[Rfam]
RNA: 2dG-II purine riboswitch aptamer
RNA sequence: CUACCUUGUAGCUCGGGGAAUGGGCCCCGGGGUAUCCACGGUCCGGCCGUAACCGGACGAGUCCAGGGGAA
Number, nucleotide and partner (000 for none) at each position: 001c000002u070003a000004c068005c067006u066007u065008g064009u000010a000011g000012c031013u030014c029015g028016g027017g026018g025019a000020a000021u000022g000023g000024g000025c018026c017027c016028c015029g014030g013031g012032g000033u000034a000035u000036c000037c000038a000039c000040g000041g058042u057043c056044c055045g054046g053047c000048c000049g000050u000051a000052a000053c046054c045055g044056g043057a042058c041059g000060a000061g000062u000063c000064c008065a007066g006067g005068g004069g000070a002071a000